[Rfam]
RNA sequence: GAAAGACAGGUGAGAAUCCUGUCCACCGUAUGACUAAGGUUUCCUGGGGAAGGCUCGUCCUCCCAGGGUUAGUCGGGACCUAAGGCGAGGCCGAGAGGCGUAGUCGAUGGCAAACAGGUUGAGAUUCCUGUACUAGUUUGUUUUGUUUGAACGAUGGAGGGACGCAGUAGGCUAAGGAAAGCAUCCGGCUGGAAAUGGAUGUCUAAGCAUUAAGUCUUGAAGCGAGUGAAAUGCUUACUUCAGUGAAGGACAAGAUGUGAUGGGGAGCGAAAUUUAAGUAGCGAAGUUCCUGAUGUCACACUGCCAAGAAAAGCUUCUAGUGAGAAACAAACUACCCGUACCGCAAACCGACACAGGUAGUCGAGGAGAGUAUCCUCAGGUGAG
Numbered sequence: 001g002a003a004a005g006a007c008a009g010g011u012g013a014g015a016a017u018c019c020u021g022u023c024c025a026c027c028g029u030a031u032g033a034c035u036a037a038g039g040u041u042u043c044c045u046g047g048g049g050a051a052g053g054c055u056c057g058u059c060c061u062c063c064c065a066g067g068g069u070u071a072g073u074c075g076g077g078a079c080c081u082a083a084g085g086c087g088a089g090g091c092c093g094a095g096a097g098g099c100g101u102a103g104u105c106g107a108u109g110g111c112a113a114a115c116a117g118g119u120u121g122a123g124a125u126u127c128c129u130g131u132a133c134u135a136g137u138u139u140g141u142u143u144u145g146u147u148u149g150a151a152c153g154a155u156g157g158a159g160g161g162a163c164g165c166a167g168u169a170g171g172c173u174a175a176g177g178a179a180a181g182c183a184u185c186c187g188g189c190u191g192g193a194a195a196u197g198g199a200u201g202u203c204u205a206a207g208c209a210u211u212a213a214g215u216c217u218u219g220a221a222g223c224g225a226g227u228g229a230a231a232u233g234c235u236u237a238c239u240u241c242a243g244u245g246a247a248g249g250a251c252a253a254g255a256u257g258u259g260a261u262g263g264g265g266a267g268c269g270a271a272a273u274u275u276a277a278g279u280a281g282c283g284a285a286g287u288u289c290c291u292g293a294u295g296u297c298a299c300a301c302u303g304c305c306a307a308g309a310a311a312a313g314c315u316u317c318u319a320g321u322g323a324g325a326a327a328c329a330a331a332c333u334a335c336c337c338g339u340a341c342c343g344c345a346a347a348c349c350g351a352c353a354c355a356g357g358u359a360g361u362c363g364a365g366g367a368g369a370g371u372a373u374c375c376u377c378a379g380g381u382g383a384g
Base pairs, nucleotide, nucleotide: 005023006022007021008020009019010018024382025381026380027379032362033361034360035359038342039341043067044066045065046064047063048062052060053059074338075337076336077335079110080109084105085104086103088101090099091098092097114131115130116129117128118127134334135333136332137331138330139329140328141327142326143325144324151321152320156317157316158315159314164304165303166302167301170297171296172295175291176290177289178288179287181202182201183200184199185198186197203263204262207258208257209256210255214251215250216249218242219241220240221239222238224236226234227233267282268281270279348357349356364376365375366374367373

The record is a 384-nucleotide part of an RNA from Lacticaseibacillus brantae, which matches "Bacterial large subunit ribosomal RNA" in Rfam. The base pairs follow the family's consensus structure, which is taken from published work. The match comes from Rfam's covariance-model search (2951 bits).